[Rfam]
RNA sequence: AGUAAAUACUAAGUACUGGUGCCGCGGGAGGUUAUAAUUGAUUACUCCUGCGACUCUUGUGCUUACUAUGUCAA
Numbered sequence: 001a002g003u004a005a006a007u008a009c010u011a012a013g014u015a016c017u018g019g020u021g022c023c024g025c026g027g028g029a030g031g032u033u034a035u036a037a038u039u040g041a042u043u044a045c046u047c048c049u050g051c052g053a054c055u056c057u058u059g060u061g062c063u064u065a066c067u068a069u070g071u072c073a074a
Base pairs, nucleotide, nucleotide: 004071006069007068010065011064012063013062014061015060016059018057019056024051025050026049027048028047029046030045

This 74-nucleotide sequence from Lottia gigantea belongs to the Rfam family "mir-252 microRNA precursor family". Rfam links the family to the GO terms RISC complex and miRNA-mediated post-transcriptional gene silencing. The source organism's lineage runs through Eukaryota, Protostomia, Spiralia, Lottioidea and Lottia. A search with the family's covariance model found it, with a score of 53 bits. The literature on the family includes a 2009 paper in BMC Genomics by Li et al., "Direct sequencing and expression analysis of a large number of miRNAs in Aedes aegypti and a multi-species survey of novel mosquito miRNAs".